[Rfam]
RNA sequence: AUCGAGGCUAGAGUCACGCUUGGGUAUUUGCUGUUGCCUUAGUGUGCUAGAGUCCUCGGAGAGCAACUGCUACCCUUAUUCACUGACUGUGGGCCCCUGUGGCACAGUCAGUCACCAGGCUAGUGACACCA
Numbered sequence: 001a002u003c004g005a006g007g008c009u010a011g012a013g014u015c016a017c018g019c020u021u022g023g024g025u026a027u028u029u030g031c032u033g034u035u036g037c038c039u040u041a042g043u044g045u046g047c048u049a050g051a052g053u054c055c056u057c058g059g060a061g062a063g064c065a066a067c068u069g070c071u072a073c074c075c076u077u078a079u080u081c082a083c084u085g086a087c088u089g090u091g092g093g094c095c096c097c098u099g100u101g102g103c104a105c106a107g108u109c110a111g112u113c114a115c116c117a118g119g120c121u122a123g124u125g126a127c128a129c130c131a
Stems, first nucleotide, its partner, number of pairs: 002059005007053003012048002015046006023038004070123003074119003082112005088106004